[Rfam]
Nucleotides: 046
Base pairs, nucleotide, nucleotide: 006021007020008019009018010017011016
Number, partner (000 for none) and nucleotide at each position: 001000c002000u003000a004000a005000a006021g007020g008019c009018c010017c011016u012000u013000u014000u015000c016011a017010g018009g019008g020007c021006c022000a023000u024000c025000c026000a027000a028000u029000u030000a031000a032000u033000c034000c035000u036000c037000c038000a039000a040000a041000g042000g043000g044000u045000u046000g